[Rfam]
RNA sequence: CCGGUUCCGGUUCACGUUGACCAUAGGGGUCGGCGACCCGGUGCC
Numbered sequence: 001c002c003g004g005u006u007c008c009g010g011u012u013c014a015c016g017u018u019g020a021c022c023a024u025a026g027g028g029g030u031c032g033g034c035g036a037c038c039c040g041g042u043g044c045c
Base pairs, nucleotide, nucleotide: 003045004044005043007041008040009039010038015035016034017033018032019031020030021029022028